Shown here is a 115-nucleotide RNA sequence from Medicago truncatula, a member of the family "MIR2593 microRNA precursor family". The family has 7 seed sequences and 1,262 matches in Rfam 15.1. Taxonomically the source falls in Medicago (Eukaryota, Streptophyta, Fabaceae, Hologalegina).
RNA sequence: AUAUAAGCAAAAAUCUAUGUUUUAGAUUCAUUCAAUAAAUGAUGUAUGUGGUCUUUAUUGUAGACAACAUACAUCAUUUAUUGAAUGAAUUUAAAAUAUAAAUUUUUGCUUAUAU
Numbered sequence: 001a002u003a004u005a006a007g008c009a010a011a012a013a014u015c016u017a018u019g020u021u022u023u024a025g026a027u028u029c030a031u032u033c034a035a036u037a038a039a040u041g042a043u044g045u046a047u048g049u050g051g052u053c054u055u056u057a058u059u060g061u062a063g064a065c066a067a068c069a070u071a072c073a074u075c076a077u078u079u080a081u082u083g084a085a086u087g088a089a090u091u092u093a094a095a096a097u098a099u100a101a102a103u104u105u106u107u108g109c110u111u112a113u114a115u
Base pairs, nucleotide, nucleotide: 002114003113004112005111006110007109009107010106011105012104013103016100017099018098019097020096021095022094023093024092025091027089028088029087030086031085032084033083034082035081036080037079038078039077040076041075042074043073044072049067051065052064